[Rfam]
RNA sequence: GGCUUUUUUCGCAGCGGAGCUCGACCGCCCACAGCGCUGAUCGUGGAGUUCAUCGACCAGCACAAGCAGAAGUUCGGUGCUCACACCGAUCUGCCGCACGCUCAUGUCGGCGGGCACGCAGAACGCACCG
Numbered sequence: 001g002g003c004u005u006u007u008u009u010c011g012c013a014g015c016g017g018a019g020c021u022c023g024a025c026c027g028c029c030c031a032c033a034g035c036g037c038u039g040a041u042c043g044u045g046g047a048g049u050u051c052a053u054c055g056a057c058c059a060g061c062a063c064a065a066g067c068a069g070a071a072g073u074u075c076g077g078u079g080c081u082c083a084c085a086c087c088g089a090u091c092u093g094c095c096g097c098a099c100g101c102u103c104a105u106g107u108c109g110g111c112g113g114g115c116a117c118g119c120a121g122a123a124c125g126c127a128c129c130g
Stems, first nucleotide, its partner, number of pairs: 014028004075130005087125002090122005

The record is a 130-nucleotide RNA sequence from Kocuria palustris, which matches "ALIL pseudoknot" in Rfam. A reference for the family is Mazauric et al. (2008), "Apical loop-internal loop RNA pseudoknots: a new type of stimulator of -1 translational frameshifting in bacteria", J Biol Chem. Lineage of the source: Bacteria > Actinomycetes > Micrococcaceae > Kocuria > Kocuria palustris. The match comes from Rfam's covariance-model search (51 bits).